[Rfam]
RNA: Soft rot Enterobacteriaceae Rev 39 5'UTR
Organism: Citrobacter koseri
RNA sequence: UCUUGUGCUAUUGGCGAAAGCUAUGGUAACUCUUUAGGCAUUCCUUCGAACAAGAUGCAAGAAUAGACAAAAAUGACAGCCCUUCUACGAGUGAUUAGCCUGGUCGUGAUUAGCGUGGUGGUGAUUAUUAUCCCACCGUGCGGGGCUGCACUUGGACGAGGAAAGGCUUAGAAAUCAAGCCUUAACGAACUAAGACCCCCGCACCGAAAGGUCCGGGGGUUUUUUUUUGACCUUAAAAACAUAAACGAGGAGCAGAUAAUGACUAAUAGCAUAAAAUUCUGUUUCUCCAGAU
Numbered sequence: 001u002c003u004u005g006u007g008c009u010a011u012u013g014g015c016g017a018a019a020g021c022u023a024u025g026g027u028a029a030c031u032c033u034u035u036a037g038g039c040a041u042u043c044c045u046u047c048g049a050a051c052a053a054g055a056u057g058c059a060a061g062a063a064u065a066g067a068c069a070a071a072a073a074u075g076a077c078a079g080c081c082c083u084u085c086u087a088c089g090a091g092u093g094a095u096u097a098g099c100c101u102g103g104u105c106g107u108g109a110u111u112a113g114c115g116u117g118g119u120g121g122u123g124a125u126u127a128u129u130a131u132c133c134c135a136c137c138g139u140g141c142g143g144g145g146c147u148g149c150a151c152u153u154g155g156a157c158g159a160g161g162a163a164a165g166g167c168u169u170a171g172a173a174a175u176c177a178a179g180c181c182u183u184a185a186c187g188a189a190c191u192a193a194g195a196c197c198c199c200c201g202c203a204c205c206g207a208a209a210g211g212u213c214c215g216g217g218g219g220u221u222u223u224u225u226u227u228u229g230a231c232c233u234u235a236a237a238a239a240c241a242u243a244a245a246c247g248a249g250g251a252g253c254a255g256a257u258a259a260u261g262a263c264u265a266a267u268a269g270c271a272u273a274a275a276a277u278u279c280u281g282u283u284u285c286u287c288c289a290g291a292u
Base pairs, nucleotide, nucleotide: 001026002025004023005021034071035070037068039066041063042062043061045059046055047054081250082249083248086244089240095236096235097234098232101229102228103227105115106114107113117137118136119135120134121133123132124131125130138157139156141154142153143152144151160186165182166181168179169178192223193222194221195220196219197218198217199216200215201214203212204211205210251283252282253281254280255279256278259272260271261270